[Rfam]
RNA sequence: UGCCGAAUCCGUGCAGCCAUGAGGCACGGAGCCGGGGACCCAGGGAUCCCGUCACGCGGGAUCAGGGGUGAAUCGGCGCGCCUGCGCCGUAGGGCUACUUCCCGGCCCGAACCCGUCAGCUAACCCGGUAGGCGUCGGUGGAAGA
Numbered sequence: 001u002g003c004c005g006a007a008u009c010c011g012u013g014c015a016g017c018c019a020u021g022a023g024g025c026a027c028g029g030a031g032c033c034g035g036g037g038a039c040c041c042a043g044g045g046a047u048c049c050c051g052u053c054a055c056g057c058g059g060g061a062u063c064a065g066g067g068g069u070g071a072a073u074c075g076g077c078g079c080g081c082c083u084g085c086g087c088c089g090u091a092g093g094g095c096u097a098c099u100u101c102c103c104g105g106c107c108c109g110a111a112c113c114c115g116u117c118a119g120c121u122a123a124c125c126c127g128g129u130a131g132g133c134g135u136c137g138g139u140g141g142a143a144g145a
Stems, first nucleotide, its partner, number of pairs: 001134004008030007031129006041065001066114003074089004092108004
RNA: c-di-AMP riboswitch aptamer (ydaO/yuaA leader)
Organism: Nonomuraea pusilla